[Rfam]
RNA sequence: GUGCGUCUUCAGGGCGGGGCGAAAUUCCCCACCGGCGGUAGGUCGGCGUCAGCCGACGAGCCCGCGAGCGCCCGCGCAACCGCGCGGGGUCAGCAGAUCUGGUCGAAUGCCAGAGCCGACGGUCACAGUCCGGAUGAGAGAAGAUGUGC
Dot-bracket structure: ..((((((((......(((.......))).[[((((((.....................[[))))..((.......................))...(((((.......)))))]])).(((.....]]))).......))))))))..
RNA: FMN riboswitch aptamer (RFN element)
Organism: Burkholderia multivorans